[Rfam]
RNA sequence: GGGCAUUCGGAAGGCUUGCACUCUGGGCUACUGGCAGGGAACAGCGUUUCUCCACUUCCGCCCAGGGGAAAGUCCCCGGACACGCGGCAGAAAGUGCCCUGGGUGAUCCCAGCGUCGGACUGCGCCCCGCUGGCCUCAGCCGAGACGUUCACCCGAACCGAGCUGGGCGGUGGCAGGUCGACUUUGUCAGCAUGACAGGCAUGCGAGCAGGCGGCGACUCGCGCACGACCAGAACGGGGCUCAUUCUCGGAAUGCA
Numbered sequence: 001g002g003g004c005a006u007u008c009g010g011a012a013g014g015c016u017u018g019c020a021c022u023c024u025g026g027g028c029u030a031c032u033g034g035c036a037g038g039g040a041a042c043a044g045c046g047u048u049u050c051u052c053c054a055c056u057u058c059c060g061c062c063c064a065g066g067g068g069a070a071a072g073u074c075c076c077c078g079g080a081c082a083c084g085c086g087g088c089a090g091a092a093a094g095u096g097c098c099c100u101g102g103g104u105g106a107u108c109c110c111a112g113c114g115u116c117g118g119a120c121u122g123c124g125c126c127c128c129g130c131u132g133g134c135c136u137c138a139g140c141c142g143a144g145a146c147g148u149u150c151a152c153c154c155g156a157a158c159c160g161a162g163c164u165g166g167g168c169g170g171u172g173g174c175a176g177g178u179c180g181a182c183u184u185u186g187u188c189a190g191c192a193u194g195a196c197a198g199g200c201a202u203g204c205g206a207g208c209a210g211g212c213g214g215c216g217a218c219u220c221g222c223g224c225a226c227g228a229c230c231a232g233a234a235c236g237g238g239g240c241u242c243a244u245u246c247u248c249g250g251a252a253u254g255c256a
Stems, first nucleotide, its partner, number of pairs: 003255006010248002014208006022066007037052005071241002074239004086098004099112005115181003121177001124174003127170004137165004147158004210226001211224003
Description
This 256-nucleotide RNA sequence from Myripristis murdjan belongs to the Rfam family "RNase MRP". The match comes from Rfam's covariance-model search (125 bits). NCBI's taxonomy places the organism under Eukaryota, Metazoa, Vertebrata, Myripristinae, Myripristis. By type it is a ribozyme. Rfam describes the family as follows. RNase MRP is an enzymatically active ribonucleoprotein with two distinct roles in eukaryotes. In mitochondria it plays a direct role in the initiation of mitochondrial DNA replication. In the nucleus it is involved in precursor rRNA processing, where it cleaves the internal transcribed spacer 1 between 18S and 5.8S rRNAs. Gene Ontology terms of the family: rRNA processing, ribonuclease MRP activity and ribonuclease MRP complex.